[Rfam]
Rfam assigns this 124-nucleotide RNA from Thomasclavelia cocleata to the family "FMN riboswitch aptamer (RFN element)". NCBI's taxonomy places the organism under Bacteria, Bacillota, Erysipelotrichales, Coprobacillaceae, Thomasclavelia. It scores 106 bits against the family's covariance model. Rfam describes the family as follows. The RFN element is a highly conserved domain that is found frequently in the 5'-untranslated regions of prokaryotic mRNAs that encode for flavin mononucleotide (FMN) biosynthesis and transport proteins.
RNA sequence: UAUAGUCUUUGUGGCGGGGUGAAAGUCCCUACCGAUGGUUAUAGUCCAUGACCCAUAUCAAUAUAUGGUUGAGUUAGUGAAAUUCUAACACCGACGGUUAAAGUCCGGAUGAGAAAAGACAUUU
Numbered sequence: 001u002a003u004a005g006u007c008u009u010u011g012u013g014g015c016g017g018g019g020u021g022a023a024a025g026u027c028c029c030u031a032c033c034g035a036u037g038g039u040u041a042u043a044g045u046c047c048a049u050g051a052c053c054c055a056u057a058u059c060a061a062u063a064u065a066u067g068g069u070u071g072a073g074u075u076a077g078u079g080a081a082a083u084u085c086u087a088a089c090a091c092c093g094a095c096g097g098u099u100a101a102a103g104u105c106c107g108g109a110u111g112a113g114a115a116a117a118g119a120c121a122u123u124u
Stems, first nucleotide, its partner, number of pairs: 005120006017029003031104002033093002035049004044091002053068002073089005095107003